[Rfam]
A member of the RNA family "SAM (S-adenosyl methionine) riboswitch aptamer" from Nocardioides marmoriginsengisoli, 116 nucleotides long. Clan: SAM clan. From the family's description: SAM-IV is a mRNA element that regulates gene expression via direct sensing of S-adenosylmethionine (SAM or AdoMet). SAM-IV riboswitches share conserved nucleotide positions with the previously described SAM-I riboswitches sequence analysis and molecular recognition experiments suggest that SAM-I and SAM-IV riboswitches share similar ligand binding sites, but have different scaffolds. NCBI's taxonomy places the organism under Bacteria, Actinomycetes, Propionibacteriales, Nocardioidaceae, Nocardioides. The literature on the family includes a 2008 paper in RNA by Weinberg et al., "The aptamer core of SAM-IV riboswitches mimics the ligand-binding site of SAM-I riboswitches".
RNA sequence: CGUCACGAGUACUGAUGCGAAGCCCCGGCUGGUCAGUCGGCAACCCUCCUUCCACGGUGGGGUGCCCCGGGUGAGGACGUGGCCUGCUGCGCCGUGCAGUCGGGCAAGCGUGGACU
Numbered sequence: 001c002g003u004c005a006c007g008a009g010u011a012c013u014g015a016u017g018c019g020a021a022g023c024c025c026c027g028g029c030u031g032g033u034c035a036g037u038c039g040g041c042a043a044c045c046c047u048c049c050u051u052c053c054a055c056g057g058u059g060g061g062g063u064g065c066c067c068c069g070g071g072u073g074a075g076g077a078c079g080u081g082g083c084c085u086g087c088u089g090c091g092c093c094g095u096g097c098a099g100u101c102g103g104g105c106a107a108g109c110g111u112g113g114a115c116u
Base pairs, nucleotide, nucleotide: 001079002078003077004076009038011037012036013035014034015033016032021030022029039066040065041064044062045061046060048057049056082105083104084103085102086101087099088098089097090096091095